[Rfam]
This 128-nucleotide RNA belongs to the Rfam family "LOOT RNA".

RNA sequence: CGCCUAAACUCAUAGAUUUUCUAUGGGCACGGCAUGAAAUUCCCAUCAAAGGUAUUGAGCUCCAUGCUCAGCGUACUCUUUGAUGGGUCUUGUCGGGAAACUGGCAGGUGCUGGGCUGGAGCUCUAUG
Number, nucleotide and partner (000 for none) at each position: 001c000002g033003c032004c031005u000006a000007a000008a000009c027010u026011c025012a024013u023014a022015g021016a000017u000018u000019u000020u000021c015022u014023a013024u012025g011026g010027g009028c000029a000030c000031g004032g003033c002034a000035u000036g000037a000038a000039a000040u000041u000042c087043c086044c085045a084046u083047c082048a081049a080050a079051g078052g000053u000054a074055u073056u070057g069058a068059g067060c000061u000062c000063c000064a000065u000066g000067c059068u058069c057070a056071g000072c000073g055074u054075a000076c000077u000078c051079u050080u049081u048082g047083a046084u045085g044086g043087g042088u000089c108090u107091u106092g105093u104094c103095g102096g101097g000098a000099a000100a000101c096102u095103g094104g093105c092106a091107g090108g089109u128110g127111c000112u000113g124114g123115g122116c121117u000118g000119g000120a000121g116122c115123u114124c113125u000126a000127u110128g109
Record summary
The sequence is in the family's curated seed alignment.